[Rfam]
RNA sequence: CCCGACUGAGAAUUUGUUAAAAAAAAAAUCCUGCAUGGUGAAUCCCCCUGAGCGGCGGGGCAUAUCAGCGUCACAGGUGUUUCUGUUUUACCUCUAUCCUUUCUGUGCGGGUUCAGGUGCUGAUACUGAACUCACCGGGAGGCACCCGGCACCAUGCAUGAACGGUACAUAGCGCAUACAUCAGCCCCUCUCCGGAGGGGCUUUCUUGUGGGC
Numbered sequence: 001c002c003c004g005a006c007u008g009a010g011a012a013u014u015u016g017u018u019a020a021a022a023a024a025a026a027a028a029u030c031c032u033g034c035a036u037g038g039u040g041a042a043u044c045c046c047c048c049u050g051a052g053c054g055g056c057g058g059g060g061c062a063u064a065u066c067a068g069c070g071u072c073a074c075a076g077g078u079g080u081u082u083c084u085g086u087u088u089u090a091c092c093u094c095u096a097u098c099c100u101u102u103c104u105g106u107g108c109g110g111g112u113u114c115a116g117g118u119g120c121u122g123a124u125a126c127u128g129a130a131c132u133c134a135c136c137g138g139g140a141g142g143c144a145c146c147c148g149g150c151a152c153c154a155u156g157c158a159u160g161a162a163c164g165g166u167a168c169a170u171a172g173c174g175c176a177u178a179c180a181u182c183a184g185c186c187c188c189u190c191u192c193c194g195g196a197g198g199g200g201c202u203u204u205c206u207u208g209u210g211g212g213c
Stems, first nucleotide, its partner, number of pairs: 014165003033157008045060004068099001070097001103107001109133004114128003135149005172213002175210001183202007

A member of the RNA family "Gammaproteobacterial sRNA STnc100" from Escherichia phage 1720a-02, 213 nucleotides long. The family's consensus secondary structure was predicted with CMfinder. Lineage of the source: Viruses > Duplodnaviria > Heunggongvirae > Uroviricota > Caudoviricetes.